c-di-GMP-I riboswitch aptamer: an 88-nucleotide RNA from Sedimentibacter hydroxybenzoicus. The match comes from Rfam's covariance-model search (69 bits). Rfam links the family to the GO term cyclic-di-GMP binding. The base pairs follow the family's consensus structure, which is taken from published work. Clan: c-di-GMP_I riboswitch clan.
RNA sequence: AAUUAACGAGGGCAAACCUAUCGAAAGCUAGGGACGCAAAGCCAUGAAGUCUAAGACAUUUAUAUGUUAUGACCGUUCAGCUGCAAAA
Numbered sequence: 001a002a003u004u005a006a007c008g009a010g011g012g013c014a015a016a017c018c019u020a021u022c023g024a025a026a027g028c029u030a031g032g033g034a035c036g037c038a039a040a041g042c043c044a045u046g047a048a049g050u051c052u053a054a055g056a057c058a059u060u061u062a063u064a065u066g067u068u069a070u071g072a073c074c075g076u077u078c079a080g081c082u083g084c085a086a087a088a
Stems, first nucleotide, its partner, number of pairs: 012037002017032004022027001040082003046078003049073003056067004